[Rfam]
RNA sequence: GUCCCGUUAGCUCAGGUGGUAGAGCACUUGACUUUUAAUCAAGGUGUCGAUGGUUCGAGUCCAUCACGGGACA
Number, nucleotide and partner (000 for none) at each position: 001g072002u071003c070004c069005c068006g067007u066008u000009a000010g025011c024012u023013c022014a000015g000016g000017u000018g000019g000020u000021a000022g013023a012024g011025c010026a000027c043028u042029u041030g040031a039032c000033u000034u000035u000036u000037a000038a000039u031040c030041a029042a028043g027044g000045u000046g000047u000048c000049g065050a064051u063052g062053g061054u000055u000056c000057g000058a000059g000060u000061c053062c052063a051064u050065c049066a007067c006068g005069g004070g003071a002072c001073a000

The record is a 73-nucleotide RNA from Acholeplasma laidlawii, which matches "tRNA" in Rfam. The source organism's lineage runs through Bacteria, Bacillati, Mycoplasmatota, Mollicutes and Acholeplasma. It is annotated as a transfer RNA. The sequence is in the family's curated seed alignment.